[Rfam]
RNA sequence: UGUUAAUUUUAAAGGCUACCCAAGACUGUAGGGACUUUCGUUUAAAAAUCCUACAUAGGUGGAAAUACUUUGUUGUGUAUUUUUAUCUCUUCUUGGAAGAGAUUUUUUUAUAUGUAG
Number, nucleotide and partner (000 for none) at each position: 001u000002g000003u000004u000005a000006a000007u000008u000009u000010u000011a000012a000013a000014g000015g000016c000017u000018a000019c000020c000021c000022a000023a000024g000025a000026c000027u000028g054029u053030a052031g051032g050033g049034a041035c040036u000037u000038u000039c000040g035041u034042u000043u000044a000045a000046a000047a000048a000049u033050c032051c031052u030053a029054c028055a000056u000057a000058g000059g000060u000061g000062g000063a000064a000065a000066u000067a000068c000069u000070u000071u000072g000073u000074u000075g000076u000077g000078u000079a000080u000081u000082u000083u000084u000085a000086u102087c101088u100089c099090u098091u097092c096093u000094u000095g000096g092097a091098a090099g089100a088101g087102a086103u000104u000105u000106u000107u000108u000109u000110a000111u000112a000113u000114g000115u000116a000117g000